[Rfam]
RNA sequence: AUCAGUGACACGGGGUGUCGGAGAAGCCGACUGAGAUAAGACCCGUCGAACCUGAUCUAGUUCACGCUAGCGGAGGGAUGUCGCAUGACUCUACC
Number, nucleotide and partner (000 for none) at each position: 001a000002u000003c000004a000005g000006u083007g082008a081009c080010a079011c045012g044013g043014g042015g000016u039017g031018u030019c029020g028021g027022a000023g000024a000025a000026g000027c021028c020029g019030a018031c017032u000033g000034a000035g000036a000037u000038a000039a016040g000041a000042c014043c013044c012045g011046u000047c000048g000049a000050a000051c076052c075053u074054g000055a000056u000057c070058u069059a068060g067061u000062u000063c000064a000065c000066g000067c060068u059069a058070g057071c000072g000073g000074a053075g052076g051077g000078a000079u010080g009081u008082c007083g006084c000085a000086u000087g000088a000089c000090u000091c000092u000093a000094c000095c000

TPP riboswitch aptamer (THI element): a 95-nucleotide RNA. The family's consensus secondary structure is taken from published work. A search with the family's covariance model found it, with a score of 74 bits.